[Rfam]
RNA sequence: AACGUGCUCCGGGGUCGGUGAAAGUCCGAGCCGGCGGUGACAGUCCGCGACCCGCGCUUCGGCGCGGUUGACCUGGUGGAACUCCGGGACCGACGGUGAAAGUCCGGAUGGGAGGAACACGUG
Numbered sequence: 001a002a003c004g005u006g007c008u009c010c011g012g013g014g015u016c017g018g019u020g021a022a023a024g025u026c027c028g029a030g031c032c033g034g035c036g037g038u039g040a041c042a043g044u045c046c047g048c049g050a051c052c053c054g055c056g057c058u059u060c061g062g063c064g065c066g067g068u069u070g071a072c073c074u075g076g077u078g079g080a081a082c083u084c085c086g087g088g089a090c091c092g093a094c095g096g097u098g099a100a101a102g103u104c105c106g107g108a109u110g111g112g113a114g115g116a117a118c119a120c121g122u123g
Stems, first nucleotide, its partner, number of pairs: 003121004008116003016028003030103002032092002034048004043090002052067002072088005094106003
A member of the RNA family "FMN riboswitch aptamer (RFN element)" from Paraoerskovia marina, 123 nucleotides long. The organism belongs to Paraoerskovia, within Bacteria. Rfam 15.1 lists 6,230 matches to the family in 5,120 species.